[Rfam]
The record is a 72-nucleotide RNA sequence from Roseomonas mucosa, which matches "Makes More Granules Regulator RNA (mmgR)" in Rfam. SuhB later renamed mmgR (makes more granules regulator) was a putative non-coding RNA found multiple times in the Agrobacterium tumefaciens genome and related alpha-proteobacteria. The match comes from Rfam's covariance-model search (52 bits). Rfam classes the family as a small RNA. Pairs were carried over by alignment from the consensus structure. Lineage of the source: Bacteria > Pseudomonadati > Alphaproteobacteria > Acetobacterales > Roseomonas.

RNA sequence: UGAGGCUGCAUUUCUUGGACGUUUCCUCCCUAAACUUGGCGGCUCCUCGGAGCCGCCUUUCUUUUUUCGGCU
Numbered sequence: 001u002g003a004g005g006c007u008g009c010a011u012u013u014c015u016u017g018g019a020c021g022u023u024u025c026c027u028c029c030c031u032a033a034a035c036u037u038g039g040c041g042g043c044u045c046c047u048c049g050g051a052g053c054c055g056c057c058u059u060u061c062u063u064u065u066u067u068c069g070g071c072u
Stems, first nucleotide, its partner, number of pairs: 008020001011017001038057008